Rfam assigns this 371-nucleotide RNA sequence from Halobacillus sp. BBL2006 to the family "Bacterial RNase P class B".
[Rfam]
RNA sequence: AUACUCGGGUAAUCGCUGUAUGUUUCCAUACAGAGGAAAGUCCAUGCUCGCACAGACUGAGACGUCUGUAGUGUUCGUGCCUGACGAAACCAUAAGUCAGGGUAGUUUUUACUAACGGCAGGGAAAGUUCCUACGUCUUCGGAUAUGGAAUGAAUACCUUGAAAGUGCCACAGUGACGGAGCCAAAAUAGAAAUAUUUUGGGUGGAACGAGGUAAACCCCACGAGCGAGCAACCCAAAUGAAGGUAGGGGCACUCUUCAAUAGGAAAUGAACUAGAGAAGAGGUCGUUAAUUCGGCAGAUAGAUGAUUACCACCGGAGUACGAGGUUGACCACCGCUUGCAGUACGAUGGAACAGAACAUGGCUUACAGAG
Numbered sequence: 001a002u003a004c005u006c007g008g009g010u011a012a013u014c015g016c017u018g019u020a021u022g023u024u025u026c027c028a029u030a031c032a033g034a035g036g037a038a039a040g041u042c043c044a045u046g047c048u049c050g051c052a053c054a055g056a057c058u059g060a061g062a063c064g065u066c067u068g069u070a071g072u073g074u075u076c077g078u079g080c081c082u083g084a085c086g087a088a089a090c091c092a093u094a095a096g097u098c099a100g101g102g103u104a105g106u107u108u109u110u111a112c113u114a115a116c117g118g119c120a121g122g123g124a125a126a127g128u129u130c131c132u133a134c135g136u137c138u139u140c141g142g143a144u145a146u147g148g149a150a151u152g153a154a155u156a157c158c159u160u161g162a163a164a165g166u167g168c169c170a171c172a173g174u175g176a177c178g179g180a181g182c183c184a185a186a187a188u189a190g191a192a193a194u195a196u197u198u199u200g201g202g203u204g205g206a207a208c209g210a211g212g213u214a215a216a217c218c219c220c221a222c223g224a225g226c227g228a229g230c231a232a233c234c235c236a237a238a239u240g241a242a243g244g245u246a247g248g249g250g251c252a253c254u255c256u257u258c259a260a261u262a263g264g265a266a267a268u269g270a271a272c273u274a275g276a277g278a279a280g281a282g283g284u285c286g287u288u289a290a291u292u293c294g295g296c297a298g299a300u301a302g303a304u305g306a307u308u309a310c311c312a313c314c315g316g317a318g319u320a321c322g323a324g325g326u327u328g329a330c331c332a333c334c335g336c337u338u339g340c341a342g343u344a345c346g347a348u349g350g351a352a353c354a355g356a357a358c359a360u361g362g363c364u365u366a367c368a369g370a371g
Stems, first nucleotide, its partner, number of pairs: 004371003007367001008311007016033006038365003042362005047229005052069006075224005080101006102116001103114004117219002120159003128150004135144003165217002167213003182201008233249003253282006283296004313350003318345004
Its family is annotated with tRNA processing, dimeric ribonuclease P complex and ribonuclease P activity in the Gene Ontology.